The record is a 60-nucleotide RNA from Crystallibacter crystallopoietes, which matches "msiK RNA" in Rfam. Rfam classes the family as a cis-regulatory element. A search with the family's covariance model found it, with a score of 68 bits. The source organism's lineage runs through Bacteria, Bacillati, Actinomycetota, Micrococcales and Crystallibacter.
[Rfam]
RNA sequence: GAAUAUCAACCCAUCACAACGGAUCGUCGGGCACGUACCUGCCCGUGAAGGGAAACACCA
Dot-bracket structure: .........(((.(((...........((((((......))))))))).)))........
The family's consensus secondary structure is taken from published work.